[Rfam]
RNA sequence: CUCAAUUCCGAGGGGUGUUCCUUUCGGACCGUGUUUUCGCGCUAGGGCAACUGCCUGGCGCGGCACGUUCCGGAGGAGCUGAGAUGGCCUAUGCCGGACCCUUAGAACCUGAUCCGGGUCAUGCCGGCGAAGGGACAGGAACCCGAGCCUUCU
Numbered sequence: 001c002u003c004a005a006u007u008c009c010g011a012g013g014g015g016u017g018u019u020c021c022u023u024u025c026g027g028a029c030c031g032u033g034u035u036u037u038c039g040c041g042c043u044a045g046g047g048c049a050a051c052u053g054c055c056u057g058g059c060g061c062g063g064c065a066c067g068u069u070c071c072g073g074a075g076g077a078g079c080u081g082a083g084a085u086g087g088c089c090u091a092u093g094c095c096g097g098a099c100c101c102u103u104a105g106a107a108c109c110u111g112a113u114c115c116g117g118g119u120c121a122u123g124c125c126g127g128c129g130a131a132g133g134g135a136c137a138g139g140a141a142c143c144c145g146a147g148c149c150u151u152c153u
Base pairs, nucleotide, nucleotide: 006141007140008139009138011102012101013100014099016096017079018078019077020076021075022074023073024072086095087094088093108133109132110131114127115126116125117124
Annotation:
This 153-nucleotide RNA from Stappia albiluteola belongs to the Rfam family "TPP riboswitch aptamer (THI element)". The match comes from Rfam's covariance-model search (67 bits). NCBI's taxonomy places the organism under Bacteria, Pseudomonadati, Alphaproteobacteria, Stappiaceae, Stappia. About the family: Vitamin B(1) in its active form thiamin pyrophosphate (TPP) is an essential coenzyme that is synthesised by coupling of pyrimidine and thiazole moieties in bacteria.